About this RNA:
A member of the RNA family "mir-190 microRNA precursor family" from Owenia fusiformis, 75 nucleotides long.
[Rfam]
RNA sequence: UCUACUCUGAGAUAUGUUUGUUAUAUUUGGUGGUGUAGAUAACUCACCAGAUAUCAAACAUGUCAUUAGAGUGGA
Numbered sequence: 001u002c003u004a005c006u007c008u009g010a011g012a013u014a015u016g017u018u019u020g021u022u023a024u025a026u027u028u029g030g031u032g033g034u035g036u037a038g039a040u041a042a043c044u045c046a047c048c049a050g051a052u053a054u055c056a057a058a059c060a061u062g063u064c065a066u067u068a069g070a071g072u073g074g075a
Base pairs, nucleotide, nucleotide: 005071006070007069008068009067011064012063013062014061015060016059017058018057019056020055022053023052024051029048030047031046032045033044

The match comes from Rfam's covariance-model search (59 bits).